Shown here is a 131-nucleotide RNA from Trichogramma brassicae, a member of the family "mir-67 microRNA precursor family".
A search with the family's covariance model found it, with a score of 64 bits.
The family's consensus secondary structure was predicted with RNAalifold.
Its family is annotated with RISC complex and miRNA-mediated post-transcriptional gene silencing in the Gene Ontology.
On this family, see Cao et al., Insect Biochem Mol Biol 2008: "Identification of conserved microRNAs in Bombyx mori (silkworm) and regulation of fibroin L chain production by microRNAs in heterologous system".

RNA sequence: AAUUGCGUUGACUCACUCGACCUGGGUGUGAUGCUUGCCCGUGCGUGUACCAUGCGUGCUUCGCUGUGCGUGUGGGUGCCUCGAAAGGGCUUAGCUGUCAUCACAACCUUUUUGAGUGAGCGAACGCUUUU
Numbered sequence: 001a002a003u004u005g006c007g008u009u010g011a012c013u014c015a016c017u018c019g020a021c022c023u024g025g026g027u028g029u030g031a032u033g034c035u036u037g038c039c040c041g042u043g044c045g046u047g048u049a050c051c052a053u054g055c056g057u058g059c060u061u062c063g064c065u066g067u068g069c070g071u072g073u074g075g076g077u078g079c080c081u082c083g084a085a086a087g088g089g090c091u092u093a094g095c096u097g098u099c100a101u102c103a104c105a106a107c108c109u110u111u112u113u114g115a116g117u118g119a120g121c122g123a124a125c126g127c128u129u130u131u
Stems, first nucleotide, its partner, number of pairs: 008123003012120009024108002027105007